[Rfam]
RNA sequence: AGACCCUUAUGGGUCACCUAGCCAACUGACGUUGUUAGUGAACUAAGUAUUCACAAAAUGAAGCCAAUAGAAUCUUUCUAUUGGCUAUUUUUUU
Numbered sequence: 001a002g003a004c005c006c007u008u009a010u011g012g013g014u015c016a017c018c019u020a021g022c023c024a025a026c027u028g029a030c031g032u033u034g035u036u037a038g039u040g041a042a043c044u045a046a047g048u049a050u051u052c053a054c055a056a057a058a059u060g061a062a063g064c065c066a067a068u069a070g071a072a073u074c075u076u077u078c079u080a081u082u083g084g085c086u087a088u089u090u091u092u093u094u
Stems, first nucleotide, its partner, number of pairs: 002015005032061004038054005064084008

This 94-nucleotide sequence from Vibrio nereis belongs to the Rfam family "Qrr RNA". Rfam describes the family as follows. This family represents a set of small RNAs (the Qrr RNAs) that are thought to be involved in the regulation of quorum sensing in Vibrio species. The family has 30 seed sequences and 148 matches in Rfam 15.1. The family's RNA type in Rfam is small RNA.